[Rfam]
RNA sequence: UAGGGGAGACGGGGUUCGGUGCCCCUCCCCGAACCCAGGGUAACCUUAAAAGAGGAGGGGAA
Number, nucleotide and partner (000 for none) at each position: 001u000002a000003g000004g000005g000006g000007a000008g041009a000010c039011g000012g036013g035014g034015u033016u031017c000018g029019g028020u000021g000022c060023c059024c058025c057026u056027c055028c019029c018030c000031g016032a000033a015034c014035c013036c012037a000038g000039g010040g000041u008042a000043a000044c000045c000046u000047u000048a000049a000050a000051a000052g000053a000054g000055g027056a026057g025058g024059g023060g022061a000062a000